[Rfam]
RNA sequence: GAGUCUAACAAAUGUGCGAGCGUAUGUAUGUUUUUAACUAUAUUCUUAAUGUUUACGCGUAAUUAAUGUAUCAGAAUCUUAUGUAGAUUGUACUGAUGGAUAAUGUUUAUUAUUCAUUUGAAGUACAUGCACACAAUACCGGUUAGCAAUUACGCUUAAUUGAGUAUGAGUAUAUUUGUUAGGACCCGAGAGGCUUUGAACUAAGCGUGGUGAGAUUGAAGUCAGACGAAAGUCUGAUGGAGGAUCGAAUUGAUACUGACGUGCAAAUCGUUCAUUUCAAUCACGUUUAGGGGCGAAAGACUAAUCGAAAAGCCUAUUAGCUGGUU
Numbered sequence: 001g002a003g004u005c006u007a008a009c010a011a012a013u014g015u016g017c018g019a020g021c022g023u024a025u026g027u028a029u030g031u032u033u034u035u036a037a038c039u040a041u042a043u044u045c046u047u048a049a050u051g052u053u054u055a056c057g058c059g060u061a062a063u064u065a066a067u068g069u070a071u072c073a074g075a076a077u078c079u080u081a082u083g084u085a086g087a088u089u090g091u092a093c094u095g096a097u098g099g100a101u102a103a104u105g106u107u108u109a110u111u112a113u114u115c116a117u118u119u120g121a122a123g124u125a126c127a128u129g130c131a132c133a134c135a136a137u138a139c140c141g142g143u144u145a146g147c148a149a150u151u152a153c154g155c156u157u158a159a160u161u162g163a164g165u166a167u168g169a170g171u172a173u174a175u176u177u178g179u180u181a182g183g184a185c186c187c188g189a190g191a192g193g194c195u196u197u198g199a200a201c202u203a204a205g206c207g208u209g210g211u212g213a214g215a216u217u218g219a220a221g222u223c224a225g226a227c228g229a230a231a232g233u234c235u236g237a238u239g240g241a242g243g244a245u246c247g248a249a250u251u252g253a254u255a256c257u258g259a260c261g262u263g264c265a266a267a268u269c270g271u272u273c274a275u276u277u278c279a280a281u282c283a284c285g286u287u288u289a290g291g292g293g294c295g296a297a298a299g300a301c302u303a304a305u306c307g308a309a310a311a312g313c314c315u316a317u318u319a320g321c322u323g324g325u326u
Stems, first nucleotide, its partner, number of pairs: 005182013020058003026052004062069002082135003089127006138165002140162006185324002188321001192314006201290011212278001214246004221238007251274003255271002258269002292302002
RNA: Eukaryotic large subunit ribosomal RNA, nucleotides 751 to 1076